The family of this 507-nucleotide RNA sequence from Nocardiopsis sp. NRRL B-16309 is "Saccharopolyspora sRNA 350". It scores 195 bits against the family's covariance model. Lineage of the source: Bacteria > Actinomycetota > Actinomycetes > Nocardiopsidaceae > Nocardiopsis. On this family, see Liu et al., PLoS One 2013: "Prediction and characterization of small non-coding RNAs related to secondary metabolites in Saccharopolyspora erythraea".
RNA sequence: UUGACGGUGCAGUCCCAGGUCGCGUCCGGGUUGAGCAGGCCCUCCUCGCCGAACUGCUCGCCGUCGGCCAGGACGCCGAUCCGCGUGGCGUCGCCGUAGGGGCCCUCGGUGGUCUUGUGGACCCGGCCGUGGGCCAGGAGGUAGAGGUGGUCGGCGGGCCUGCCCUCGUGCGCGAGCACGUCACCGGGCUCGAACUCGCGCUGGGUGAAGCGGCCGGCCAGCUCGCCCAGCACGCCCACGUCGUCGAAACCGGACAGCAGCGCCAGCUCGCCGAGCUCCUGUGGGAUGACCUCGACGUCGGCGCCGGUCUGGUUGAACUCGAUACGGCCGUCACCGAUGGUGUAGCUGAGGCGGCGGUUGACGCGGUAGGCGCCGCCCUCGGUCUGCACCCAGGGCAGCAUCCUCUGCAGCCAGCGGGAACUCUUCCCCUGCAUCUGCGGUGCGGACUUGGUGGUGGUCGCCAGGUUCCGGGCGGCCGCGGUCGCCAGGCUCCGCUGGCCGUUCCGG
Numbered sequence: 001u002u003g004a005c006g007g008u009g010c011a012g013u014c015c016c017a018g019g020u021c022g023c024g025u026c027c028g029g030g031u032u033g034a035g036c037a038g039g040c041c042c043u044c045c046u047c048g049c050c051g052a053a054c055u056g057c058u059c060g061c062c063g064u065c066g067g068c069c070a071g072g073a074c075g076c077c078g079a080u081c082c083g084c085g086u087g088g089c090g091u092c093g094c095c096g097u098a099g100g101g102g103c104c105c106u107c108g109g110u111g112g113u114c115u116u117g118u119g120g121a122c123c124c125g126g127c128c129g130u131g132g133g134c135c136a137g138g139a140g141g142u143a144g145a146g147g148u149g150g151u152c153g154g155c156g157g158g159c160c161u162g163c164c165c166u167c168g169u170g171c172g173c174g175a176g177c178a179c180g181u182c183a184c185c186g187g188g189c190u191c192g193a194a195c196u197c198g199c200g201c202u203g204g205g206u207g208a209a210g211c212g213g214c215c216g217g218c219c220a221g222c223u224c225g226c227c228c229a230g231c232a233c234g235c236c237c238a239c240g241u242c243g244u245c246g247a248a249a250c251c252g253g254a255c256a257g258c259a260g261c262g263c264c265a266g267c268u269c270g271c272c273g274a275g276c277u278c279c280u281g282u283g284g285g286a287u288g289a290c291c292u293c294g295a296c297g298u299c300g301g302c303g304c305c306g307g308u309c310u311g312g313u314u315g316a317a318c319u320c321g322a323u324a325c326g327g328c329c330g331u332c333a334c335c336g337a338u339g340g341u342g343u344a345g346c347u348g349a350g351g352c353g354g355c356g357g358u359u360g361a362c363g364c365g366g367u368a369g370g371c372g373c374c375g376c377c378c379u380c381g382g383u384c385u386g387c388a389c390c391c392a393g394g395g396c397a398g399c400a401u402c403c404u405c406u407g408c409a410g411c412c413a414g415c416g417g418g419a420a421c422u423c424u425u426c427c428c429c430u431g432c433a434u435c436u437g438c439g440g441u442g443c444g445g446a447c448u449u450g451g452u453g454g455u456g457g458u459c460g461c462c463a464g465g466u467u468c469c470g471g472g473c474g475g476c477c478g479c480g481g482u483c484g485c486c487a488g489g490c491u492c493c494g495c496u497g498g499c500c501g502u503u504c505c506g507g
Stems, first nucleotide, its partner, number of pairs: 006390007014382002018328001025322002028319002031316002035313002038310002041307002047303006055232001057230002060227001062225002065111002068108001075103001077102001081101002085097001086093001117222002120219001122217002127212001130209001132206001134204004138199001140197001143196002150191001154189002158185001161178002165174001167172001234296001236294001240290006251281003256277003260271003329342004351379001353377005362370001391431005397425001400422001403418003407415001437476002440473001443470004447465006477506002480503003484499005